Rfam assigns this 145-nucleotide RNA from Aspergillus ibericus to the family "A. fumigatus sRNA Afu_254".
The organism belongs to Aspergillus ibericus, within Eukaryota.
The family's RNA type in Rfam is small RNA.
A search with the family's covariance model found it, with a score of 86 bits.

RNA sequence: AAUCAAAGUUUCCAACUCUCCAAACCACUUUUAGCCACUUUUACCGGUUAUCAACCAACUUCUGCCAAAAUGUCUCCCUGCUCCUGCAACUGCUGCUCUGGCAACUGCGCCAGCUGCUCCUGCUCCUCCUGCAGCGUGAGUAUCC
Numbered sequence: 001a002a003u004c005a006a007a008g009u010u011u012c013c014a015a016c017u018c019u020c021c022a023a024a025c026c027a028c029u030u031u032u033a034g035c036c037a038c039u040u041u042u043a044c045c046g047g048u049u050a051u052c053a054a055c056c057a058a059c060u061u062c063u064g065c066c067a068a069a070a071u072g073u074c075u076c077c078c079u080g081c082u083c084c085u086g087c088a089a090c091u092g093c094u095g096c097u098c099u100g101g102c103a104a105c106u107g108c109g110c111c112a113g114c115u116g117c118u119c120c121u122g123c124u125c126c127u128c129c130u131g132c133a134g135c136g137u138g139a140g141u142a143u144c145c
Stems, first nucleotide, its partner, number of pairs: 079103004086096003107132003116123002